This 77-nucleotide RNA sequence from Alligator mississippiensis belongs to the Rfam family "Mammalian CPEB3 ribozyme". It scores 60 bits against the family's covariance model. Rfam's curators write: The mammalian CPEB3 ribozyme is a self cleaving RNA located in the second intron of the CPEB3 gene which belongs to a family of genes regulating messenger RNA polyadenylation. The organism belongs to Alligator, within Eukaryota.
RNA sequence: AAGGGAAAGGAGAAGGCUAUAGCAGAAGCGCUCAUGGCACAGCCAUGUCAGAUUCCAGUGGAUCUGUGAAUUCUGCU
Numbered sequence: 001a002a003g004g005g006a007a008a009g010g011a012g013a014a015g016g017c018u019a020u021a022g023c024a025g026a027a028g029c030g031c032u033c034a035u036g037g038c039a040c041a042g043c044c045a046u047g048u049c050a051g052a053u054u055c056c057a058g059u060g061g062a063u064c065u066g067u068g069a070a071u072u073c074u075g076c077u
Stems, first nucleotide, its partner, number of pairs: 015044004021077007028040001030038001049066007